[Rfam]
Rfam assigns this 92-nucleotide sequence from Sapajus apella to the family "mir-3200 microRNA precursor family". The base pairs follow the family's consensus structure, which was predicted with RNAalifold. Rfam 15.1 lists 66 matches to the family in 63 species. It scores 91 bits against the family's covariance model.

RNA sequence: AGGAGGUGGUCGGGGGAAUCUGAGAAGGCGCAUGAGGCUUGUGUCCAGUAUGGUCCACACCUUGCGCUGUUCAGGUCUGCUCGUGCCCUCCC
Dot-bracket structure: .(((((.(..((((.(.(((((((..((((((..(((.((((((...))))))......))))))))).))))))).).))))..)))))).